[Rfam]
RNA sequence: UUACUGGACGCUUUCGCUAUUGAACUGUUCUGUCACUCUCUGACAGAGAACAAUUUGUUCUUUGACAGAGUGACAAAACAGUUCAAUAGCUAAGCGUCCAGUAUG
Numbered sequence: 001u002u003a004c005u006g007g008a009c010g011c012u013u014u015c016g017c018u019a020u021u022g023a024a025c026u027g028u029u030c031u032g033u034c035a036c037u038c039u040c041u042g043a044c045a046g047a048g049a050a051c052a053a054u055u056u057g058u059u060c061u062u063u064g065a066c067a068g069a070g071u072g073a074c075a076a077a078a079c080a081g082u083u084c085a086a087u088a089g090c091u092a093a094g095c096g097u098c099c100a101g102u103a104u105g
Base pairs, nucleotide, nucleotide: 002103003102004101005100006099011094012093013092016090017089018088019087020086021085022084023083024082025081026080027079028078029069030068031067032066033065034064035063049059050058051057052056

About this RNA
mir-8517 microRNA precursor family: a 105-nucleotide RNA sequence from Plutella xylostella. Taxonomically the source falls in Plutella (Eukaryota, Opisthokonta, Hexapoda, Ditrysia). The family's consensus secondary structure was predicted with RNAalifold.